[Rfam]
RNA sequence: AUUCGGUCCAAUCUAAUUCUGCAUCAUGGUUUAUUUAUGUAGUCUCGCUUUUGGACAAAACUAAUCCACAAAUCUUUUAUUAUCCUUGUGCUUGUGGCACUAUCCCCUGUCCAAUGCACACGAGAAACGUAGAAGAACAUUA
Numbered sequence: 001a002u003u004c005g006g007u008c009c010a011a012u013c014u015a016a017u018u019c020u021g022c023a024u025c026a027u028g029g030u031u032u033a034u035u036u037a038u039g040u041a042g043u044c045u046c047g048c049u050u051u052u053g054g055a056c057a058a059a060a061c062u063a064a065u066c067c068a069c070a071a072a073u074c075u076u077u078u079a080u081u082a083u084c085c086u087u088g089u090g091c092u093u094g095u096g097g098c099a100c101u102a103u104c105c106c107c108u109g110u111c112c113a114a115u116g117c118a119c120a121c122g123a124g125a126a127a128c129g130u131a132g133a134a135g136a137a138c139a140u141u142a
Base pairs, nucleotide, nucleotide: 006056007055008054009053010052019042020041021040022039023038024037026035027033028032073136074135075134076133077132078131079130080129085124086123087122088121089120090119

The family of this 142-nucleotide RNA sequence from Drosophila pseudoobscura is "Small nucleolar RNA psi28S-1192". Pairs were carried over by alignment from the consensus structure, which was predicted with ILM. Gene Ontology terms of the family: RNA processing and nucleolus. Rfam 15.1 lists 81 matches to the family in 36 species. From the family's description: psi28S-1192 is a member of the H/ACA class of snoRNA. This family is responsible for guiding the modification of uridine 1192 to pseudouridine in Drosophila 28S rRNA. It is annotated as an H/ACA-box small nucleolar RNA.